The record is a 166-nucleotide RNA sequence from Bacillus thuringiensis, which matches "M-box riboswitch aptamer (ykoK leader)" in Rfam. Taxonomically the source falls in Bacillus thuringiensis serovar sotto (Bacteria, Bacillati, Bacilli, Bacillaceae). The family has 159 seed sequences and 1,095 matches in Rfam 15.1. M-box riboswitch, also know as ykoK leader is described as a metaloregulatory RNA that sense divalent metals and function as a genetic control element of genes related to divalent metal transport in bacteria.
[Rfam]
RNA sequence: AUAUGUCUCUGUUAGGUGAGGCUCCUGUAUAGAGAAACGCUGCUACCCAAAAAUGUCGAGAUACGCCAAUCGGUCAACAGGAACGGUCCAAUUAAGGCCCUUCUUCUUAAUGUAGAUGGUUUUAAACCUAUACUGUACAGUGCUAAAACUCAAUGAGGGGGCUUUU
Numbered sequence: 001a002u003a004u005g006u007c008u009c010u011g012u013u014a015g016g017u018g019a020g021g022c023u024c025c026u027g028u029a030u031a032g033a034g035a036a037a038c039g040c041u042g043c044u045a046c047c048c049a050a051a052a053a054u055g056u057c058g059a060g061a062u063a064c065g066c067c068a069a070u071c072g073g074u075c076a077a078c079a080g081g082a083a084c085g086g087u088c089c090a091a092u093u094a095a096g097g098c099c100c101u102u103c104u105u106c107u108u109a110a111u112g113u114a115g116a117u118g119g120u121u122u123u124a125a126a127c128c129u130a131u132a133c134u135g136u137a138c139a140g141u142g143c144u145a146a147a148a149c150u151c152a153a154u155g156a157g158g159g160g161g162c163u164u165u166u
Stems, first nucleotide, its partner, number of pairs: 005162006011154002013095001015150003020144003025140008040115004045074003049070001054065003080107004086098003118128003